A member of the RNA family "Actinobacteria sRNA Ms_IGR-5" from Sanguibacter suaedae, 281 nucleotides long.
A search with the family's covariance model found it, with a score of 53 bits.
A reference for the family is Li et al. (2013), "Identification of small RNAs in Mycobacterium smegmatis using heterologous Hfq", RNA.
Rfam classes the family as a small RNA.
[Rfam]
RNA sequence: ACAUGGGAAAGGAGGUGGUCCAAGACAUGAUUUCUCUUAGGACGCGUGAGGUGACUGUCCGCUAGUCGCCAUGCUCUCGCCGGCACCAUGCCGGCAGCGCAGGUCCGCCCCGCGGGCCGGUGCUGAGCGAAGGACGGCCGGUCGGCUGCGCCGAUACCCGGGCCUCCUCUCCCCCACGCGGGAGGGCGGCAGCGAGUACCAGGCAGUCACCGAGGCCCGUGGGAGCCGUGGACCCGUCCACCACGGCACGGAGGACCCCCUCCAUCCCACGGGCUUUCCCA
Numbered sequence: 001a002c003a004u005g006g007g008a009a010a011g012g013a014g015g016u017g018g019u020c021c022a023a024g025a026c027a028u029g030a031u032u033u034c035u036c037u038u039a040g041g042a043c044g045c046g047u048g049a050g051g052u053g054a055c056u057g058u059c060c061g062c063u064a065g066u067c068g069c070c071a072u073g074c075u076c077u078c079g080c081c082g083g084c085a086c087c088a089u090g091c092c093g094g095c096a097g098c099g100c101a102g103g104u105c106c107g108c109c110c111c112g113c114g115g116g117c118c119g120g121u122g123c124u125g126a127g128c129g130a131a132g133g134a135c136g137g138c139c140g141g142u143c144g145g146c147u148g149c150g151c152c153g154a155u156a157c158c159c160g161g162g163c164c165u166c167c168u169c170u171c172c173c174c175c176a177c178g179c180g181g182g183a184g185g186g187c188g189g190c191a192g193c194g195a196g197u198a199c200c201a202g203g204c205a206g207u208c209a210c211c212g213a214g215g216c217c218c219g220u221g222g223g224a225g226c227c228g229u230g231g232a233c234c235c236g237u238c239c240a241c242c243a244c245g246g247c248a249c250g251g252a253g254g255a256c257c258c259c260c261u262c263c264a265u266c267c268c269a270c271g272g273g274c275u276u277u278c279c280c281a
Stems, first nucleotide, its partner, number of pairs: 014059006060194004066188001068187003212277013226246006